[Rfam]
RNA sequence: UAUAGAUUUUGGCAAACCUAUUGAAAGAUAGGGACGCAAAGCUAGAGCCUGUCGGAAAAAUAAUGUGUAAUUCCUAUGGUAGUUCAGUUGCAACU
Numbered sequence: 001u002a003u004a005g006a007u008u009u010u011g012g013c014a015a016a017c018c019u020a021u022u023g024a025a026a027g028a029u030a031g032g033g034a035c036g037c038a039a040a041g042c043u044a045g046a047g048c049c050u051g052u053c054g055g056a057a058a059a060a061u062a063a064u065g066u067g068u069a070a071u072u073c074c075u076a077u078g079g080u081a082g083u084u085c086a087g088u089u090g091c092a093a094c095u
Base pairs, nucleotide, nucleotide: 012037013036017032018031019030020029021028022027040089041088042087043086045085046084047080048079049078054074055073056072057071
The family of this 95-nucleotide sequence from Anaerocolumna aminovalerica is "c-di-GMP-I riboswitch aptamer".
It scores 62 bits against the family's covariance model.